[Rfam]
RNA: mir-181 microRNA precursor family
RNA sequence: UGCCCACAGUGAACAUUCAACGCUGUCGGUGAGUUUUAACUCUAAACGAAACCAUCGACCGUUAAAUGUACCCUGAGGUAUC
Numbered sequence: 001u002g003c004c005c006a007c008a009g010u011g012a013a014c015a016u017u018c019a020a021c022g023c024u025g026u027c028g029g030u031g032a033g034u035u036u037u038a039a040c041u042c043u044a045a046a047c048g049a050a051a052c053c054a055u056c057g058a059c060c061g062u063u064a065a066a067u068g069u070a071c072c073c074u075g076a077g078g079u080a081u082c
Stems, first nucleotide, its partner, number of pairs: 002081001004078002007075002014068004019063004025059007033052004
Dot-bracket structure: .(.((.((.....((((.((((..(((((((.((((............))))))))))))))).)))).....)).))..).